Shown here is a 73-nucleotide sequence from Hymenochirus boettgeri, a member of the family "Small nucleolar RNA SNORD30". Pairs were carried over by alignment from the consensus structure. For this family Rfam cites "A small nucleolar RNA requirement for site-specific ribose methylation of rRNA in Xenopus" (Tycowski et al., Proc Natl Acad Sci U S A, 1996). Its Rfam clan is "SNORD30 clan". The family's RNA type in Rfam is C/D-box small nucleolar RNA.
RNA sequence: UGACAUGAUGAUCUUGAUCUCAUGGAAUCUCGUUCGACUGAAAAAUCCUGUUGAGACUUUGUAUCUGACAAGU
Numbered sequence: 001u002g003a004c005a006u007g008a009u010g011a012u013c014u015u016g017a018u019c020u021c022a023u024g025g026a027a028u029c030u031c032g033u034u035c036g037a038c039u040g041a042a043a044a045a046u047c048c049u050g051u052u053g054a055g056a057c058u059u060u061g062u063a064u065c066u067g068a069c070a071a072g073u
Base pairs, nucleotide, nucleotide: 028056029055030054031053032052035050036049